[Rfam]
RNA: Glycine riboswitch aptamer
RNA sequence: CUCGCGCUCGCAGGAGAGCAGGCCGCGCGAGCGGCCUCACCGAAGGCGCAAACUCCCAUAAACGCUCAGGUCGGCUCACGUGAUGAGCCC
Numbered sequence: 001c002u003c004g005c006g007c008u009c010g011c012a013g014g015a016g017a018g019c020a021g022g023c024c025g026c027g028c029g030a031g032c033g034g035c036c037u038c039a040c041c042g043a044a045g046g047c048g049c050a051a052a053c054u055c056c057c058a059u060a061a062a063c064g065c066u067c068a069g070g071u072c073g074g075c076u077c078a079c080g081u082g083a084u085g086a087g088c089c090c
Base pairs, nucleotide, nucleotide: 008083009082010081011080013079020037021036022035023034039071040070041069042067043066046065047064048063052059